RNA sequence: ACUAAUACUCGGAGGUAAGGGAGACAUGAACAACUAAUCUAUCAAAUAAAGAAUCUUUAUUUAGUAGAUCUUGUUUUUGUCUCUUUUUGCAUGCUCUU
Numbered sequence: 001a002c003u004a005a006u007a008c009u010c011g012g013a014g015g016u017a018a019g020g021g022a023g024a025c026a027u028g029a030a031c032a033a034c035u036a037a038u039c040u041a042u043c044a045a046a047u048a049a050a051g052a053a054u055c056u057u058u059a060u061u062u063a064g065u066a067g068a069u070c071u072u073g074u075u076u077u078u079g080u081c082u083c084u085u086u087u088u089g090c091a092u093g094c095u096c097u098u
Stems, first nucleotide, its partner, number of pairs: 011097004017087010028076006037069006044062008
Streptococcus sRNA SpF43: a 98-nucleotide RNA sequence from Streptococcus oralis. The organism belongs to Streptococcus oralis subsp. dentisani, within Bacteria. The base pairs follow the family's consensus structure, which was predicted with mfold.